This 152-nucleotide sequence from Pseudomonas sp. SSM44 belongs to the Rfam family "FMN riboswitch aptamer (RFN element)".
The source organism's lineage runs through Bacteria, Pseudomonadati, Pseudomonadota, Pseudomonadales and Pseudomonas.
RNA sequence: CGUCGUUCUCGGGGCGGGGUGCAAUUCCCCACCGGCGGUAAUGGAGUUAACUCCUCAGCCCGCGAGCGCUCUACCCGUGUUAUCGGUCGAGGUCAGCAGAUCUGGUGUAAUUCCAGAGCCGACGGUGAUAGUCCGGAUAAGAGAGAACGCGU
Numbered sequence: 001c002g003u004c005g006u007u008c009u010c011g012g013g014g015c016g017g018g019g020u021g022c023a024a025u026u027c028c029c030c031a032c033c034g035g036c037g038g039u040a041a042u043g044g045a046g047u048u049a050a051c052u053c054c055u056c057a058g059c060c061c062g063c064g065a066g067c068g069c070u071c072u073a074c075c076c077g078u079g080u081u082a083u084c085g086g087u088c089g090a091g092g093u094c095a096g097c098a099g100a101u102c103u104g105g106u107g108u109a110a111u112u113c114c115a116g117a118g119c120c121g122a123c124g125g126u127g128a129u130a131g132u133c134c135g136g137a138u139a140a141g142a143g144a145g146a147a148c149g150c151g152u
Stems, first nucleotide, its partner, number of pairs: 004149007017029003031132002033121002035063004058119002066097002101117005123135003